[Rfam]
RNA sequence: GCAUCGGUUUAGCUCAGUGGUUACUUCUACAAACUCAACGUCUCUUGGACGAUCCGCGGGUUGUCAGGUUCGACUACGGGCGCUGUCCGAUGUUUUU
Numbered sequence: 001g002c003a004u005c006g007g008u009u010u011a012g013c014u015c016a017g018u019g020g021u022u023a024c025u026u027c028u029a030c031a032a033a034c035u036c037a038a039c040g041u042c043u044c045u046u047g048g049a050c051g052a053u054c055c056g057c058g059g060g061u062u063g064u065c066a067g068g069u070u071c072g073a074c075u076a077c078g079g080g081c082g083c084u085g086u087c088c089g090a091u092g093u094u095u096u097u
Stems, first nucleotide, its partner, number of pairs: 002092006012081004017077004026073002029070001
RNA: Vault RNA